[Rfam]
RNA: Group II catalytic intron D1-D4-2
Organism: Streptomyces sparsogenes
RNA sequence: GCCGGGAGCCCCAUUGCGGGGCCACGAAGAAGGUAAUGGGGGAGGCUCCAAACCGCCUCAUGCUGGGUUGGCUGAAGACCGUCGUGGUGAGCGAUGAGGAAAAGGCGCCGUAUGAGGCGUCAGGU
Number, nucleotide and partner (000 for none) at each position: 001g000002c000003c000004g000005g049006g048007a047008g046009c045010c044011c000012c042013a000014u000015u000016g000017c000018g000019g000020g000021g000022c000023c000024a000025c000026g000027a000028a000029g000030a000031a000032g000033g000034u000035a000036a000037u000038g000039g000040g000041g000042g012043a000044g010045g009046c008047u007048c006049c005050a000051a000052a000053c000054c124055g000056c099057c098058u097059c096060a095061u094062g088063c087064u000065g085066g000067g083068u000069u081070g080071g079072c000073u000074g000075a000076a000077g000078a000079c071080c070081g069082u000083c067084g000085u065086g000087g063088u062089g000090a000091g000092c000093g000094a061095u060096g059097a058098g057099g056100a000101a000102a000103a000104g121105g120106c119107g118108c117109c116110g000111u000112a000113u000114g000115a000116g109117g108118c107119g106120u105121c104122a000123g000124g054125u000